This 78-nucleotide sequence from Eschrichtius robustus belongs to the Rfam family "Small nucleolar RNA SNORD83". On this family, see Jady and Kiss, Nucleic Acids Res 2000: "Characterisation of the U83 and U84 small nucleolar RNAs: two novel 2'-O-ribose methylation guide RNAs that lack complementarities to ribosomal RNAs". It scores 96 bits against the family's covariance model.
RNA sequence: GCCACAUGAUGUUUUCAUUUUGAAAAGUGAGCGCUUUGCGUAAUGACGACCGUAAUCUGUCACCCUUGACUGAUGGCU
Numbered sequence: 001g002c003c004a005c006a007u008g009a010u011g012u013u014u015u016c017a018u019u020u021u022g023a024a025a026a027g028u029g030a031g032c033g034c035u036u037u038g039c040g041u042a043a044u045g046a047c048g049a050c051c052g053u054a055a056u057c058u059g060u061c062a063c064c065c066u067u068g069a070c071u072g073a074u075g076g077c078u
Base pairs, nucleotide, nucleotide: 001077002076003075004074031041032040033039034038